[Rfam]
About this RNA:
The family of this 148-nucleotide RNA from Litchfieldia salsa is "ylbH leader". By type it is a cis-regulatory leader. About the family: This family is a putative regulatory RNA structure that is found upstream of the ylbH gene in B. subtilis and related low GC Gram-positive bacteria. Taxonomically the source falls in Litchfieldia (Bacteria, Bacillati, Bacilli, Bacillaceae).
RNA sequence: GUAAAAAAAACCCUGCAGAAACAAGUUCUGCAGGGUCCUUCUAUAUCCAUUUUGAAGUUUGUACAAACAAACCUCUUCAUGGUAGAAGGCAAAGGGAGAGGAGAAACCGGAGGAAGAACUUAUGGGGAAACGUAAGUCUUCUCCGCGG
Numbered sequence: 001g002u003a004a005a006a007a008a009a010a011c012c013c014u015g016c017a018g019a020a021a022c023a024a025g026u027u028c029u030g031c032a033g034g035g036u037c038c039u040u041c042u043a044u045a046u047c048c049a050u051u052u053u054g055a056a057g058u059u060u061g062u063a064c065a066a067a068c069a070a071a072c073c074u075c076u077u078c079a080u081g082g083u084a085g086a087a088g089g090c091a092a093a094g095g096g097a098g099a100g101g102a103g104a105a106a107c108c109g110g111a112g113g114a115a116g117a118a119c120u121u122a123u124g125g126g127g128a129a130a131c132g133u134a135a136g137u138c139u140u141c142u143c144c145g146c147g148g
Base pairs, nucleotide, nucleotide: 011035012034013033014032015031016030017029018028019027036096037095038094039093040092047082048081049080050079108145109144110143111142113141114140115139116138118137119136120135121134122133